[Rfam]
RNA: Bacterial large signal recognition particle RNA
RNA sequence: CCGUACUAGAUGGGGAGCUAGCGGCACCCUAUAACCCACAAUCCGCUACAGUGGGAUUGAAUUCCCCACCUAGGAUUAUACUUGUGUGGUCUGCCCCAUGUAAGCAGCGUUGAGAGCAGGGCCUUGCGCAAUGGAAACUUUCGAACCGUGUCAGGUCUUGACGGAAGCAGCACUAAGGAAGAAUUUUCAUGUGCCGUAAGUUCCCCCUGCUGGAGCCGGCUGCAUGGGUAACGCAUGUGAGUAUAAUUCGAAGUGGGGUGUACGG
Numbered sequence: 001c002c003g004u005a006c007u008a009g010a011u012g013g014g015g016a017g018c019u020a021g022c023g024g025c026a027c028c029c030u031a032u033a034a035c036c037c038a039c040a041a042u043c044c045g046c047u048a049c050a051g052u053g054g055g056a057u058u059g060a061a062u063u064c065c066c067c068a069c070c071u072a073g074g075a076u077u078a079u080a081c082u083u084g085u086g087u088g089g090u091c092u093g094c095c096c097c098a099u100g101u102a103a104g105c106a107g108c109g110u111u112g113a114g115a116g117c118a119g120g121g122c123c124u125u126g127c128g129c130a131a132u133g134g135a136a137a138c139u140u141u142c143g144a145a146c147c148g149u150g151u152c153a154g155g156u157c158u159u160g161a162c163g164g165a166a167g168c169a170g171c172a173c174u175a176a177g178g179a180a181g182a183a184u185u186u187u188c189a190u191g192u193g194c195c196g197u198a199a200g201u202u203c204c205c206c207c208u209g210c211u212g213g214a215g216c217c218g219g220c221u222g223c224a225u226g227g228g229u230a231a232c233g234c235a236u237g238u239g240a241g242u243a244u245a246a247u248u249c250g251a252a253g254u255g256g257g258g259u260g261u262a263c264g265g
Stems, first nucleotide, its partner, number of pairs: 001265006009058003012030004017025003035055005064258006073249005079243010092230002096227006104220002107216002115211007123200006129191002132189005138181005148173004156165003
Dot-bracket structure: ((((((..(((((((.(((...))).))))....(((((...........)))))))).....((((((...(((((.((((((((((...((..((((((..((.((......(((((((.((((((((.(((((.(((((.....((((....(((....)))....))))...)))))...)))))))...))))))....)))))))...))..)).)))))).))...)))))))))).)))))...)))))).))))))